The record is a 202-nucleotide RNA sequence from Clostridium sp. BL8, which matches "Group II catalytic intron D1-D4-5" in Rfam. The pairing is the family consensus, mapped onto this sequence. For this family Rfam cites "The ins and outs of group II introns" (Bonen and Vogel, Trends Genet, 2001). The organism belongs to Clostridium, within Bacteria. From the family's description: Group II introns are found in rRNA, tRNA and mRNA of organelles in fungi, plants and protists, and also in mRNA in bacteria. The family has 139 seed sequences and 720 matches in Rfam 15.1.

RNA sequence: AAGAACUAAUAACUUGAAAAGUCAAAUGAGAGGGUAACGCCUUGAAGGGCUUUCUCUGAUACUCUGAAUAGCGGUUCUGUUAAUAAGAAUGGAACUGUUAUAAGCUCGGUGAAGUCGGCUGAGAUUACACCCUAAGGAGCGAUAGCUCUAGGAAAUGCGAACCAGAGGUGGUCGAGUGUAACAUAGGUCGGGAGUCUAUAAA
Numbered sequence: 001a002a003g004a005a006c007u008a009a010u011a012a013c014u015u016g017a018a019a020a021g022u023c024a025a026a027u028g029a030g031a032g033g034g035u036a037a038c039g040c041c042u043u044g045a046a047g048g049g050c051u052u053u054c055u056c057u058g059a060u061a062c063u064c065u066g067a068a069u070a071g072c073g074g075u076u077c078u079g080u081u082a083a084u085a086a087g088a089a090u091g092g093a094a095c096u097g098u099u100a101u102a103a104g105c106u107c108g109g110u111g112a113a114g115u116c117g118g119c120u121g122a123g124a125u126u127a128c129a130c131c132c133u134a135a136g137g138a139g140c141g142a143u144a145g146c147u148c149u150a151g152g153a154a155a156u157g158c159g160a161a162c163c164a165g166a167g168g169u170g171g172u173c174g175a176g177u178g179u180a181a182c183a184u185a186g187g188u189c190g191g192g193a194g195u196c197u198a199u200a201a202a
Stems, first nucleotide, its partner, number of pairs: 018053006031043004054194004064109004068101014116190005125181006131152003138147002156175001158174002161172004